[Rfam]
RNA sequence: GCGGUACCGGUUCCCGCCCGCCAGCGCGCGAGGCGACCCGGCGACC
Numbered sequence: 001g002c003g004g005u006a007c008c009g010g011u012u013c014c015c016g017c018c019c020g021c022c023a024g025c026g027c028g029c030g031a032g033g034c035g036a037c038c039c040g041g042c043g044a045c046c
Stems, first nucleotide, its partner, number of pairs: 003046003007041004015035004019030003
Dot-bracket structure: ..(((.((((....(((((((......))).))))..))))..)))
Record summary:
The record is a 46-nucleotide RNA, which matches "L31-Actinobacteria ribosomal protein leader" in Rfam. Rfam classes the family as a cis-regulatory leader. The literature on the family includes a 2020 paper in BMC Microbiol by Eckert and Weinberg, "Discovery of 20 novel ribosomal leader candidates in bacteria and archaea". It is one of the family's seed sequences.